[Rfam]
This 89-nucleotide sequence from Lysinibacillus alkalisoli belongs to the Rfam family "BsrC". Rfam 15.1 lists 572 matches to the family in 553 species. The organism belongs to Lysinibacillus, within Bacteria. Rfam's curators write: The 301 nucleotide sequence from Kouji Nakamura has been trimmed to a highly conserved ~85 nucleotide long core to form this family. It scores 71 bits against the family's covariance model. The family's RNA type in Rfam is small RNA.
RNA sequence: UCUAACUUAAGCAACGCAAGCCCUACCUGCUCUUACGUCCUUGUAGCCCCGAAGCUACGCCAGUGUGAAUAAGUGUCUGUCAAAAACAU
Dot-bracket structure: ...................................((..((((((((......))))))..))..))......................
Numbered sequence: 001u002c003u004a005a006c007u008u009a010a011g012c013a014a015c016g017c018a019a020g021c022c023c024u025a026c027c028u029g030c031u032c033u034u035a036c037g038u039c040c041u042u043g044u045a046g047c048c049c050c051g052a053a054g055c056u057a058c059g060c061c062a063g064u065g066u067g068a069a070u071a072a073g074u075g076u077c078u079g080u081c082a083a084a085a086a087c088a089u
Stems, first nucleotide, its partner, number of pairs: 036067002040063002042059006